Record summary: The record is a 313-nucleotide RNA sequence from Thermococcus sibiricus, which matches "Archaeal signal recognition particle RNA" in Rfam. It scores 225 bits against the family's covariance model.

RNA sequence: CGGCGGACUAGGCUGGGGGGUUCGGCGUCCCCUGGAACCCGAAACCGUCGAUAUGCGGGGGCCGAAGCCCGAGGGGCGGUUCCCAAAUCCAGCUGCGGAAGCCGAGAGGAGCCAUGAGCCCCUGUCCCACGGGGCUGACGGUGGGAGAGGCGGAGCUGAAGGGCUCCGCUAACUCCCUUUGUCCGCUGAACCCCGCAAGGCCCGGAAGGGAGCAGCGGUAGGUGGGACGUUCGGCGCUCGUGGGGUAGCGGGGGCGAGCAAGUCUCGGUGGAAGCCGCUGGAGGAGGGUUCCCACCCUCGGGCGUGUCCGCCG
Dot-bracket structure: ((((((((..(((((((((((.....)))))))....((((.(..........).))))))))...(((((((((..((..((....((((((...((..(((((((...((.....((((((((((((((((((((((((.(((((.(((((((((....)))))))))..))))).)..((((((.....((((....(((....)))....))))..)))))).))).)))).))))))))...))))))))..))...))))))).....))))))))...))...))..)))))))))..))))))))

The family is grouped with related families in Rfam's "SRP clan". The literature on the family includes a 2011 paper in Nat Struct Mol Biol by Hainzl et al., "Structural basis of signal-sequence recognition by the signal recognition particle". Pairs were carried over by alignment from the consensus structure, which is taken from published work. The organism belongs to Thermococcus sibiricus, within Archaea. It is annotated as a non-coding RNA gene.